[Rfam]
A member of the RNA family "c-di-AMP riboswitch aptamer (ydaO/yuaA leader)" from Paenalicyclobacillus ferrooxydans, 123 nucleotides long. It scores 86 bits against the family's covariance model.
RNA sequence: CAAAAAGUAACGCCGAAUCGUAAGAACGGGGGACUUAAAGAAUUAGGGGUGAAGGAUUUAUCCAGGGCUACCUUUUCGGCCCGAACCCGUCAGCUAACCUCGUAGGCGUGCGAAAGGGAGAGC
Numbered sequence: 001c002a003a004a005a006a007g008u009a010a011c012g013c014c015g016a017a018u019c020g021u022a023a024g025a026a027c028g029g030g031g032g033a034c035u036u037a038a039a040g041a042a043u044u045a046g047g048g049g050u051g052a053a054g055g056a057u058u059u060a061u062c063c064a065g066g067g068c069u070a071c072c073u074u075u076u077c078g079g080c081c082c083g084a085a086c087c088c089g090u091c092a093g094c095u096a097a098c099c100u101c102g103u104a105g106g107c108g109u110g111c112g113a114a115a116g117g118g119a120g121a122g123c
Stems, first nucleotide, its partner, number of pairs: 011108004018025002026103006036046001047088003055062002065082004